This 74-nucleotide sequence from Microcaecilia unicolor belongs to the Rfam family "mir-205 microRNA precursor family". The family's consensus secondary structure was predicted with RNAalifold. For this family Rfam cites "The developmental miRNA profiles of zebrafish as determined by small RNA cloning" (Chen et al., Genes Dev, 2005). The match comes from Rfam's covariance-model search (62 bits). Rfam links the family to the GO terms RISC complex and miRNA-mediated post-transcriptional gene silencing. The organism belongs to Microcaecilia, within Eukaryota.

[Rfam]
RNA sequence: CACUGGUGUCCUUCAUUCCAUCGGAUCCUGUGCACUUCCAUCCAGAUUCCCAGUGGGAUGAAGCGCAUCAGGCG
Numbered sequence: 001c002a003c004u005g006g007u008g009u010c011c012u013u014c015a016u017u018c019c020a021u022c023g024g025a026u027c028c029u030g031u032g033c034a035c036u037u038c039c040a041u042c043c044a045g046a047u048u049c050c051c052a053g054u055g056g057g058a059u060g061a062a063g064c065g066c067a068u069c070a071g072g073c074g
Stems, first nucleotide, its partner, number of pairs: 011063006019055003023050003028045003